Notes: Alphaproteobacteria transfer-messenger RNA: a 351-nucleotide RNA sequence from Tropicimonas isoalkanivorans. Bacterial tmRNA, also known as 10Sa RNA or SsrA, is named for its dual tRNA and mRNA-like properties. Its role is to liberate the mRNA from a stalled ribosome. To accomplish this part of the tmRNA is used as a reading frame that ends in a translation stop signal. The broken mRNA is replaced in the ribosome by the tmRNA and translation of the tmRNA leads to addition of a proteolysis tag to the incomplete protein enabling recognition by a protease. Pairs were carried over by alignment from the consensus structure, which is taken from published work. The source organism's lineage runs through Bacteria, Pseudomonadati, Rhodobacterales, Roseobacteraceae and Tropicimonas. The family's RNA type in Rfam is non-coding RNA gene.
RNA sequence: CCACUUCCAAUCCCGCGGCGGGCGGCCUAUUUAUACGAUGUUCCUUCGGGGACUAUGGCGAUAAACGCGCUCGUAAUAAGCGGCUCGGACCCGGGGGCGGUACCCGGCGGCUCCACCAAAUAUCCCGCAUUGGGGGAUCAGGGGGCCGAAACAGGAUCGACGGACGUCUAAAGGGGUUAGCUUUUGCCCGGUGAGGUACCACCGUUAUCGGUCCAAGCAUGAUAGUUGCCAAUGACAACCGUGCUCCGGUGGCCGUUGCUGCGUAAGCAGUAACCAAACCGAAAUCUUAAGCCCAGGCCUCUAGCAAGGUCUGGCGGGGUUCGCAGGCACCUGGCAACAGAAGCCUGCACU
Numbered sequence: 001c002c003a004c005u006u007c008c009a010a011u012c013c014c015g016c017g018g019c020g021g022g023c024g025g026c027c028u029a030u031u032u033a034u035a036c037g038a039u040g041u042u043c044c045u046u047c048g049g050g051g052a053c054u055a056u057g058g059c060g061a062u063a064a065a066c067g068c069g070c071u072c073g074u075a076a077u078a079a080g081c082g083g084c085u086c087g088g089a090c091c092c093g094g095g096g097g098c099g100g101u102a103c104c105c106g107g108c109g110g111c112u113c114c115a116c117c118a119a120a121u122a123u124c125c126c127g128c129a130u131u132g133g134g135g136g137a138u139c140a141g142g143g144g145g146c147c148g149a150a151a152c153a154g155g156a157u158c159g160a161c162g163g164a165c166g167u168c169u170a171a172a173g174g175g176g177u178u179a180g181c182u183u184u185u186g187c188c189c190g191g192u193g194a195g196g197u198a199c200c201a202c203c204g205u206u207a208u209c210g211g212u213c214c215a216a217g218c219a220u221g222a223u224a225g226u227u228g229c230c231a232a233u234g235a236c237a238a239c240c241g242u243g244c245u246c247c248g249g250u251g252g253c254c255g256u257u258g259c260u261g262c263g264u265a266a267g268c269a270g271u272a273a274c275c276a277a278a279c280c281g282a283a284a285u286c287u288u289a290a291g292c293c294c295a296g297g298c299c300u301c302u303a304g305c306a307a308g309g310u311c312u313g314g315c316g317g318g319g320u321u322c323g324c325a326g327g328c329a330c331c332u333g334g335c336a337a338c339a340g341a342a343g344c345c346u347g348c349a350c351u
Base pairs, nucleotide, nucleotide: 040053041052042051043050044049057188058187059186060185061184067181068180069177070176071175072174081166082165085163086162087161091107092106093105094104095103108148109147110146111145112144113143114142189204190203191202192201195214196213198212199211200210317332318331319330320329323348324347325346326345327344328343